RNA sequence: UAAUCUUUAUUUUAAAAACACACGCGUUUUGUAACCUUAUUCGGGGUGCUGGUGGUUUGACUUGGUCAAGGCAACAGUUCGGAUAAGAUGGAAGCGCGGAGGCCUAAC
Numbered sequence: 001u002a003a004u005c006u007u008u009a010u011u012u013u014a015a016a017a018a019c020a021c022a023c024g025c026g027u028u029u030u031g032u033a034a035c036c037u038u039a040u041u042c043g044g045g046g047u048g049c050u051g052g053u054g055g056u057u058u059g060a061c062u063u064g065g066u067c068a069a070g071g072c073a074a075c076a077g078u079u080c081g082g083a084u085a086a087g088a089u090g091g092a093a094g095c096g097c098g099g100a101g102g103c104c105u106a107a108c
Base pairs, nucleotide, nucleotide: 023098024097025096026095027094028093029092030091036087037086038085039084040083041082042081043080048078049077050076051075
RNA: t44 RNA
Organism: Thiomicrospira cyclica